RNA sequence: GGUUGCAAGUUUGAGGCCACAGCAGAAGUGCUCAUGGCGCAGCCCUGUCAGAUCACAACAAAUCUGAGAAAUCUGCU
Number, nucleotide and partner (000 for none) at each position: 001g000002g000003u000004u000005g000006c000007a000008a000009g000010u000011u000012u000013g045014a000015g044016g043017c042018c000019a000020c000021a077022g076023c075024a074025g073026a072027a000028g040029u039030g038031c000032u000033c000034a000035u000036g000037g000038c030039g029040c028041a000042g017043c016044c015045c013046u000047g000048u000049c066050a065051g064052a063053u062054c000055a000056c000057a000058a000059c000060a000061a000062a053063u052064c051065u050066g049067a000068g000069a000070a000071a000072u026073c025074u024075g023076c022077u021
RNA: Mammalian CPEB3 ribozyme